Rfam assigns this 156-nucleotide RNA from Atlantibacter hermannii to the family "sok antitoxin (CssrC)". A reference for the family is Loh et al. (1988), "Nucleotide sequence and transcriptional analysis of a third function (Flm) involved in F-plasmid maintenance", Gene. The family has 91 seed sequences and 305 matches in Rfam 15.1.
[Rfam]
RNA sequence: GGGUGCCUCAGGCUAUUUAGCCGGAGCAUGAGGCAACGGUUAAAUAGACGAAAGCCCCGUAAUUAAAUCCCUUUAAUUAACGGGGCCGCAGUCCAAACCAACCAGUUGGAUUGUAGCCCCUUCCACCGAAGGAGGCAAUUAUGCCUGUAAAACAUA
Numbered sequence: 001g002g003g004u005g006c007c008u009c010a011g012g013c014u015a016u017u018u019a020g021c022c023g024g025a026g027c028a029u030g031a032g033g034c035a036a037c038g039g040u041u042a043a044a045u046a047g048a049c050g051a052a053a054g055c056c057c058c059g060u061a062a063u064u065a066a067a068u069c070c071c072u073u074u075a076a077u078u079a080a081c082g083g084g085g086c087c088g089c090a091g092u093c094c095a096a097a098c099c100a101a102c103c104a105g106u107u108g109g110a111u112u113g114u115a116g117c118c119c120c121u122u123c124c125a126c127c128g129a130a131g132g133a134g135g136c137a138a139u140u141a142u143g144c145c146u147g148u149a150a151a152a153c154a155u156a
Base pairs, nucleotide, nucleotide: 001058002057003056005055006054008052011049013047014046015045016044017043018042019041020040021039022038023037026034027033059081060080062078063076064075065074066073067072082120083119084118085117086116088114089113090112091111092110093109094108095107096106124147125146129142
It scores 87 bits against the family's covariance model.